[Rfam]
The record is a 91-nucleotide sequence from Morella rubra, which matches "Small nucleolar RNA U54" in Rfam.
Pairs were carried over by alignment from the consensus structure, which was predicted with PFOLD.

RNA sequence: UGCUCAGUGAUUGUAUUCCCAAUAUUUUGGGAGCUUUAUACGCUAUUCUGAGGCUCUAUAUGUGCUGAAUACACGAUCAUGUAUGAGAGCU
Numbered sequence: 001u002g003c004u005c006a007g008u009g010a011u012u013g014u015a016u017u018c019c020c021a022a023u024a025u026u027u028u029g030g031g032a033g034c035u036u037u038a039u040a041c042g043c044u045a046u047u048c049u050g051a052g053g054c055u056c057u058a059u060a061u062g063u064g065c066u067g068a069a070u071a072c073a074c075g076a077u078c079a080u081g082u083a084u085g086a087g088a089g090c091u
Stems, first nucleotide, its partner, number of pairs: 002090004

The literature on the family includes a 2003 paper in Nucleic Acids Res by Chen et al., "The high diversity of snoRNAs in plants: identification and comparative study of 120 snoRNA genes from Oryza sativa". Its Rfam clan is "U54 clan". Rfam's curators write: U54 is a C/D box small nucleolar RNA, which acts as a methylation guide for 18S ribosomal RNA in plants.